[Rfam]
RNA: Lysine riboswitch aptamer
Organism: Slackia piriformis
RNA sequence: UAAAUCGAUAGAGGCGCGGGCAAGAUGAGCCUUGGCAAAGCCGGCAGGCGUUUGAUGCCAGGGGGAGGUGCGCUCGCCGAACUUAUGCGUCAGGCAUGGCGCGUGGGUGGGCUUGCGGGGAAUACCCUCAAGACUGUCCGCAGCAACGCUGCGGGUGCGCUAUCUUGCUG
Numbered sequence: 001u002a003a004a005u006c007g008a009u010a011g012a013g014g015c016g017c018g019g020g021c022a023a024g025a026u027g028a029g030c031c032u033u034g035g036c037a038a039a040g041c042c043g044g045c046a047g048g049c050g051u052u053u054g055a056u057g058c059c060a061g062g063g064g065g066a067g068g069u070g071c072g073c074u075c076g077c078c079g080a081a082c083u084u085a086u087g088c089g090u091c092a093g094g095c096a097u098g099g100c101g102c103g104u105g106g107g108u109g110g111g112c113u114u115g116c117g118g119g120g121a122a123u124a125c126c127c128u129c130a131a132g133a134c135u136g137u138c139c140g141c142a143g144c145a146a147c148g149c150u151g152c153g154g155g156u157g158c159g160c161u162a163u164c165u166u167g168c169u170g
Base pairs, nucleotide, nucleotide: 007164008163009162010161011160016077017076018075019074020073021072024069030063031062032061033060034059035058036057037056081108082107083106084105085104086103087102088101089100090099091098092097109135110134112132113131114130115129117127118126119125137155138154139153140152141151142150143149